[Rfam]
RNA sequence: GCCGGCGUGGCCGAGUGGCUUAGGCAAGGGACUGCAAAUCCCUGCACACGGGUUCGAUUCCCGUCGCCGGCU
Numbered sequence: 001g002c003c004g005g006c007g008u009g010g011c012c013g014a015g016u017g018g019c020u021u022a023g024g025c026a027a028g029g030g031a032c033u034g035c036a037a038a039u040c041c042c043u044g045c046a047c048a049c050g051g052g053u054u055c056g057a058u059u060c061c062c063g064u065c066g067c068c069g070g071c072u
Base pairs, nucleotide, nucleotide: 001071002070003069004068005067006066007065010025011024012023027043028042029041030040031039048064049063050062051061052060
RNA: tRNA